[Rfam]
RNA: SAM riboswitch aptamer (S box leader)
RNA sequence: UUCUUAUCAAGAGAAGCCGAGGGAAUGGCCCGAUGAAGCUUCAGCAACCUCUACGAUUAGUAGAAAGGUGCUAAUUCCUGCAAGCACAUGCUUGUCAGAUAAGGG
Numbered sequence: 001u002u003c004u005u006a007u008c009a010a011g012a013g014a015a016g017c018c019g020a021g022g023g024a025a026u027g028g029c030c031c032g033a034u035g036a037a038g039c040u041u042c043a044g045c046a047a048c049c050u051c052u053a054c055g056a057u058u059a060g061u062a063g064a065a066a067g068g069u070g071c072u073a074a075u076u077c078c079u080g081c082a083a084g085c086a087c088a089u090g091c092u093u094g095u096c097a098g099a100u101a102a103g104g105g
Stems, first nucleotide, its partner, number of pairs: 001105008013042005021031003027078002043072004048068002050064004076097001081094005
Dot-bracket structure: ((((((((....(((((...(((...[[)))......)))))((((.((((((.......))))..))))))...(]]..(((((....)))))..)))))))))